[Rfam]
RNA sequence: AGAGGCUGAUUUCAUGUGGUGACGUAGAUGUUUGUGCACAGUCUCUAGCACCAUGUGAAAUCAGUGCUCU
Numbered sequence: 001a002g003a004g005g006c007u008g009a010u011u012u013c014a015u016g017u018g019g020u021g022a023c024g025u026a027g028a029u030g031u032u033u034g035u036g037c038a039c040a041g042u043c044u045c046u047a048g049c050a051c052c053a054u055g056u057g058a059a060a061u062c063a064g065u066g067c068u069c070u
Stems, first nucleotide, its partner, number of pairs: 001070004005065010016054006025047004
RNA: mir-29 microRNA precursor family